[Rfam]
RNA sequence: UGAGUUAGCCAGAUAAUCGCUCGUCUCAUUAGAGGCUAGAGGAAAGUCCGGGCUCCUCGGAUCAAGGUGCUAGAUAACGUCUAGAGGGCGCGAGCUCAUGGAAAGUGCUGAAGAAAUUAAACCGCCUAAAGAUCGUUAGAUCUCGGUAAGGGUGAGAAGGUGCGGUAAGAGCGCACCGUACGAGAGGUGACUCUUCGUAGCUGAGGUAAACCCCACCUGGAGCAAGACCAAAUAGGAGUACAUUAGACGUGAUCCGCGUUGUACUCGGGUAGGUCGCUUGAGGUUAGGAGCAAUCCUAACCCUAGAUGAAUGAUUAUCCACGACAGAACCCGGCUUAUCGGCUAACUCAUCCC
Number, nucleotide and partner (000 for none) at each position: 001u349002g348003a347004g346005u345006u344007a343008g342009c341010c340011a338012g318013a317014u316015a315016a314017u313018c312019g000020c039021u038022c000023g036024u035025c034026u033027c032028a000029u000030u000031a000032g027033a026034g025035g024036c023037u000038a021039g020040a000041g000042g000043a000044a336045a335046g334047u000048c333049c332050g331051g330052g329053c222054u221055c220056c219057u000058c000059g000060g255061a000062u000063c000064a000065a218066g217067g216068u215069g214070c084071u083072a082073g081074a080075u000076a000077a000078c000079g000080u074081c073082u072083a071084g070085a099086g097087g096088g095089c094090g000091c000092g000093a000094g089095c088096u087097c086098a000099u085100g213101g212102a000103a000104a000105g211106u210107g207108c206109u205110g000111a000112a000113g000114a000115a000116a000117u000118u000119a000120a000121a000122c151123c150124g147125c146126c145127u000128a000129a000130a143131g142132a141133u140134c139135g000136u000137u000138a000139g134140a133141u132142c131143u130144c000145g126146g125147u124148a000149a000150g123151g122152g000153u000154g000155a000156g000157a000158a000159g177160g176161u175162g174163c173164g172165g000166u000167a000168a000169g000170a000171g000172c164173g163174c162175a161176c160177c159178g201179u199180a198181c197182g196183a195184g193185a192186g191187g000188u000189g000190a000191c186192u185193c184194u000195u183196c182197g181198u180199a179200g000201c178202u000203g000204a000205g109206g108207u107208a000209a000210a106211c105212c101213c100214c069215a068216c067217c066218u065219g056220g055221a054222g053223c000224a000225a000226g275227a274228c273229c272230a000231a000232a000233u000234a000235g000236g266237a265238g264239u263240a262241c261242a000243u000244u000245a000246g260247a259248c258249g257250u256251g000252a000253u000254c000255c060256g250257c249258g248259u247260u246261g241262u240263a239264c238265u237266c236267g000268g000269g000270u000271a000272g229273g228274u227275c226276g000277c000278u000279u000280g000281a000282g301283g300284u299285u298286a297287g296288g295289a294290g000291c000292a000293a000294u289295c288296c287297u286298a285299a284300c283301c282302c000303u000304a000305g000306a000307u000308g000309a000310a000311u000312g018313a017314u016315u015316a014317u013318c012319c000320a000321c000322g000323a000324c000325a000326g000327a000328a000329c052330c051331c050332g049333g048334c046335u045336u044337a000338u011339c000340g010341g009342c008343u007344a006345a005346c004347u003348c002349a001350u000351c000352c000353c000
Background:
The family of this 353-nucleotide RNA sequence from Ignatzschineria ureiclastica is "Bacterial RNase P class A". By type it is a ribozyme. The organism belongs to Ignatzschineria, within Bacteria. About the family: Ribonuclease P (RNase P) is a ubiquitous endoribonuclease, found in archaea, bacteria and eukarya as well as chloroplasts and mitochondria. Its best characterised activity is the generation of mature 5'-ends of tRNAs by cleaving the 5'-leader elements of precursor-tRNAs. Cellular RNase Ps are ribonucleoproteins. RNA from bacterial RNase Ps retains its catalytic activity in the absence of the protein subunit, i.e. it is a ribozyme. Isolated eukaryotic and archaeal RNase P RNA has not been shown to retain its catalytic function, but is still essential for the catalytic activity of the holoenzyme. Although the archaeal and eukaryotic holoenzyme s have a much greater protein content than the bacterial ones, the RNA cores from all the three lineages are homologous -- helices corresponding to P1, P2, P3, P4, and P10/11 are common to all cellular RNase P RNAs. Yet, there is considerable sequence variation, particularly among the eukaryotic RNAs. Identified in Yersinia as Ysr151/RnpB.